[Rfam]
RNA sequence: GAUUUAUGAUGAUAUAGGACCUUGUCUGAAUAUAAUGAUUUCAAAAAUUGAGCUUACAGUGACUGAAAUC
Numbered sequence: 001g002a003u004u005u006a007u008g009a010u011g012a013u014a015u016a017g018g019a020c021c022u023u024g025u026c027u028g029a030a031u032a033u034a035a036u037g038a039u040u041u042c043a044a045a046a047a048u049u050g051a052g053c054u055u056a057c058a059g060u061g062a063c064u065g066a067a068a069u070c
Base pairs, nucleotide, nucleotide: 001070002069003068004067